[Rfam]
RNA sequence: AUGCGAUGAGUCGAUUAUGGUAUUUUUACCAUUUUUGCGCGGGGGAGGUCAUUAAGGCAGGAGCCGACUUUGAUAAAUUGUGUGAACCUUUUUAUCACAUUCACUGAAUGCCCCCGACCUCUGUCAGAAAUGACAGAGGUCUUU
Numbered sequence: 001a002u003g004c005g006a007u008g009a010g011u012c013g014a015u016u017a018u019g020g021u022a023u024u025u026u027u028a029c030c031a032u033u034u035u036u037g038c039g040c041g042g043g044g045g046a047g048g049u050c051a052u053u054a055a056g057g058c059a060g061g062a063g064c065c066g067a068c069u070u071u072g073a074u075a076a077a078u079u080g081u082g083u084g085a086a087c088c089u090u091u092u093u094a095u096c097a098c099a100u101u102c103a104c105u106g107a108a109u110g111c112c113c114c115c116g117a118c119c120u121c122u123g124u125c126a127g128a129a130a131u132g133a134c135a136g137a138g139g140u141c142u143u144u
Stems, first nucleotide, its partner, number of pairs: 012037003017032006042114004046070004056065003071097007098110004118139009
RNA: MarS sRNA